[Rfam]
RNA sequence: GAUAGGUUCCUGUCGUUACCGUGAUUGGACUCUGACGCUGAGUCAACUAGCCUUGUCGACGUGGUUCUUGCGGGCAGAGAACCCGGCGCGGUCCGAGCCACCAGGGGGGAGGCUCGGACCGCUUCCC
Dot-bracket structure: (((((....)))))((((..(.(......).)((((.....))))..))))........((((.....))))..(.........)..((((((((((((.(......)..)))))))))))).....
The record is a 127-nucleotide RNA sequence from Streptomyces sp. Ag109_G2-6, which matches "Streptomyces RNA 3920" in Rfam. By type it is a small RNA. About the family: Identified by deep sequencing of transcriptome at the end of exponential growth phase. Sequencing size consistent with northern blot size. Streptomyces specific. The match comes from Rfam's covariance-model search (90 bits). The pairing is the family consensus, mapped onto this sequence.